[Rfam]
This 68-nucleotide RNA belongs to the Rfam family "Small nucleolar RNA SNORD95".
RNA sequence: GGGGCGGUGAUGACCCCAACAUGCCAUCUGAGUGUCGGUGCUGAAAUCCAGAGGCUGUUUCUGAGCUG
Numbered sequence: 001g002g003g004g005c006g007g008u009g010a011u012g013a014c015c016c017c018a019a020c021a022u023g024c025c026a027u028c029u030g031a032g033u034g035u036c037g038g039u040g041c042u043g044a045a046a047u048c049c050a051g052a053g054g055c056u057g058u059u060u061c062u063g064a065g066c067u068g
Stems, first nucleotide, its partner, number of pairs: 005068004
It is annotated as a C/D-box small nucleolar RNA. The base pairs follow the family's consensus structure, which was predicted with PFOLD.